AniS: a 105-nucleotide sequence from Neisseria meningitidis. The literature on the family includes a 2011 paper in Mol Microbiol by Fantappie et al., "A novel Hfq-dependent sRNA that is under FNR control and is synthesized in oxygen limitation in Neisseria meningitidis".
RNA sequence: AUGAAAUUCAGGGUGCUUGUUUGCUGUUUUCCAAUCUGUCUGAUUUUAUCUCUUUCCUCUUGAUGUGUGUGUGUUUGGGUGUGGCUGCCGCCACCCCUUUUUUUU
Numbered sequence: 001a002u003g004a005a006a007u008u009c010a011g012g013g014u015g016c017u018u019g020u021u022u023g024c025u026g027u028u029u030u031c032c033a034a035u036c037u038g039u040c041u042g043a044u045u046u047u048a049u050c051u052c053u054u055u056c057c058u059c060u061u062g063a064u065g066u067g068u069g070u071g072u073g074u075u076u077g078g079g080u081g082u083g084g085c086u087g088c089c090g091c092c093a094c095c096c097c098u099u100u101u102u103u104u105u
Base pairs, nucleotide, nucleotide: 002048003047004046005045006044007043008042010041011040012039017034018033019032077097078096079095081094082093083092084091085090
Background
By type it is a non-coding RNA gene. The organism belongs to Neisseria meningitidis, within Bacteria. Rfam's curators put it in the seed alignment.